[Rfam]
Rfam assigns this 81-nucleotide RNA from Sinocyclocheilus rhinocerous to the family "mir-26 microRNA precursor family". Gene Ontology terms of the family: miRNA-mediated post-transcriptional gene silencing and RISC complex. It scores 58 bits against the family's covariance model. Pairs were carried over by alignment from the consensus structure, which was predicted with RNAalifold. The source organism's lineage runs through Eukaryota, Actinopteri, Neopterygii, Cypriniphysae and Sinocyclocheilus.
RNA sequence: CCUCCUCCUGAAACAAGUAAUCAAGAAUAGGCCGUAUUAGUGGGAACUAACCUAUCCUGGAUUACUUGAACCAGGUAGAGG
Dot-bracket structure: .(((..((((...(((((((((.((.(((((...................))))).)).)))))))))...))))..))).
Numbered sequence: 001c002c003u004c005c006u007c008c009u010g011a012a013a014c015a016a017g018u019a020a021u022c023a024a025g026a027a028u029a030g031g032c033c034g035u036a037u038u039a040g041u042g043g044g045a046a047c048u049a050a051c052c053u054a055u056c057c058u059g060g061a062u063u064a065c066u067u068g069a070a071c072c073a074g075g076u077a078g079a080g081g
Stems, first nucleotide, its partner, number of pairs: 002080003007075004014068009024058002027055005